[Rfam]
Nucleotides: 115
Base pairs, nucleotide, nucleotide: 002114003113004112006110007109009107010106011105012104013103016100017099018098019097020096021095022094023093024092025091027089028088029087030086031085032084033083034082035081036080037079038078039077040076042074043073044072049067050066051065
Number, partner (000 for none) and nucleotide at each position: 001000u002114u003113a004112u005000u006110a007109g008000u009107a010106a011105a012104a013103g014000u015000c016100a017099a018098c019097u020096u021095u022094u023093u024092a025091g026000a027089u028088u029087c030086a031085u032084u033083g034082a035081a036080u037079a038078a039077u040076u041000a042074a043073u044072g045000u046000a047000u048000c049067u050066g051065g052000u053000c054000u055000a056000u057000a058000u059000u060000a061000u062000a063000g064000u065051c066050c067049a068000g069000a070000u071000a072044c073043a074042u075000c076040a077039a078038u079037u080036a081035u082034u083033c084032a085031a086030u087029g088028a089027a090000u091025c092024u093023g094022a095021a096020a097019a098018g099017u100016u101000a102000a103013c104012u105011u106010u107009u108000g109007c110006u111000u112004a113003u114002a115000a